[Rfam]
RNA sequence: UUGAAUUAAUCGCCAAAUCGUGUGCAAACACGAACGGGGGACCCAAUUUUCGGGGCGUACGUAAGGGGGCAGCUUUCCGCCCUAGCCCGUCAGCUUACCUCGUCGGCAUGGAAAGCUUGGACAG
Numbered sequence: 001u002u003g004a005a006u007u008a009a010u011c012g013c014c015a016a017a018u019c020g021u022g023u024g025c026a027a028a029c030a031c032g033a034a035c036g037g038g039g040g041a042c043c044c045a046a047u048u049u050u051c052g053g054g055g056c057g058u059a060c061g062u063a064a065g066g067g068g069g070c071a072g073c074u075u076u077c078c079g080c081c082c083u084a085g086c087c088c089g090u091c092a093g094c095u096u097a098c099c100u101c102g103u104c105g106g107c108a109u110g111g112a113a114a115g116c117u118u119g120g121a122c123a124g
Base pairs, nucleotide, nucleotide: 012107013106014105018033019032020031021030022029023028034103035102036101037100038099039098044052053088054087055086067082068081069080070079